[Rfam]
The family of this 276-nucleotide RNA from Nannospalax galili is "Mason-Pfizer monkey virus packaging signal". The family's RNA type in Rfam is cis-regulatory element. Pairs were carried over by alignment from the consensus structure, which was predicted with PFOLD. Lineage of the source: Eukaryota > Opisthokonta > Amniota > Myomorpha > Nannospalax. A search with the family's covariance model found it, with a score of 156 bits.
RNA sequence: UGGCACCCAACAUGGGGCUUGAAUACUGAGGCAGCAGUGAGGGAGACGACGUGAAAAGGAAAGCGUUUGACAAAUUUUGAGAUACAUUGGAGCCGCCUUGGGAACCUGCCUCGGCCGAAACCGAAAGUAAGUGGAAACGUCCGAUCAUGGGGCAAGAAUUAAGCCAGCAUGAGCUUUAUGUUAAGCAGUUAAAGGAGGCUUUAAAGACACCGGGAGUAAAGGUUAAAACUACAGAUUUGUUUCAUUUUUUUGAUUUUGUUAAAGAAAUUUGUCCCU
Numbered sequence: 001u002g003g004c005a006c007c008c009a010a011c012a013u014g015g016g017g018c019u020u021g022a023a024u025a026c027u028g029a030g031g032c033a034g035c036a037g038u039g040a041g042g043g044a045g046a047c048g049a050c051g052u053g054a055a056a057a058g059g060a061a062a063g064c065g066u067u068u069g070a071c072a073a074a075u076u077u078u079g080a081g082a083u084a085c086a087u088u089g090g091a092g093c094c095g096c097c098u099u100g101g102g103a104a105c106c107u108g109c110c111u112c113g114g115c116c117g118a119a120a121c122c123g124a125a126a127g128u129a130a131g132u133g134g135a136a137a138c139g140u141c142c143g144a145u146c147a148u149g150g151g152g153c154a155a156g157a158a159u160u161a162a163g164c165c166a167g168c169a170u171g172a173g174c175u176u177u178a179u180g181u182u183a184a185g186c187a188g189u190u191a192a193a194g195g196a197g198g199c200u201u202u203a204a205a206g207a208c209a210c211c212g213g214g215a216g217u218a219a220a221g222g223u224u225a226a227a228a229c230u231a232c233a234g235a236u237u238u239g240u241u242u243c244a245u246u247u248u249u250u251u252g253a254u255u256u257u258g259u260u261a262a263a264g265a266a267a268u269u270u271g272u273c274c275c276u
Stems, first nucleotide, its partner, number of pairs: 006031002013025002037047002084128002087124002094117002097113001100110002138152001140151004160203003163199003210252001212250005220238005261276001264273002